The record is a 57-nucleotide sequence from Demequina mangrovi, which matches "msiK RNA" in Rfam. Taxonomically the source falls in Demequina (Bacteria, Bacillati, Actinomycetota, Micrococcales). A search with the family's covariance model found it, with a score of 63 bits.

[Rfam]
RNA sequence: CAACGGCAUUUCUUCACUACGGAUCGUCCGGCACGUACCUGCCGGUGAAGGGAAACA
Dot-bracket structure: .........(((((((...........((((((......))))))))))))).....